[Rfam]
This 63-nucleotide RNA from Polypedilum vanderplanki belongs to the Rfam family "mir-308 microRNA precursor family". Pairs were carried over by alignment from the consensus structure, which was predicted with RNAalifold. The source organism's lineage runs through Eukaryota, Dicondylia, Neoptera, Endopterygota and Polypedilum. It scores 62 bits against the family's covariance model. On this family, see Skalsky et al., BMC Genomics 2010: "Identification of microRNAs expressed in two mosquito vectors, Aedes albopictus and Culex quinquefasciatus".

RNA sequence: UUCGCGGUAUAUUCCUUGUGACUUUGGUUCUUUCAAUAUCCAAUCACAGGAUUAUACUGUGAG
Numbered sequence: 001u002u003c004g005c006g007g008u009a010u011a012u013u014c015c016u017u018g019u020g021a022c023u024u025u026g027g028u029u030c031u032u033u034c035a036a037u038a039u040c041c042a043a044u045c046a047c048a049g050g051a052u053u054a055u056a057c058u059g060u061g062a063g
Base pairs, nucleotide, nucleotide: 001063002062003061004060005059006058007057008056009055010054011053015050016049017048018047019046020045024043025042026041027040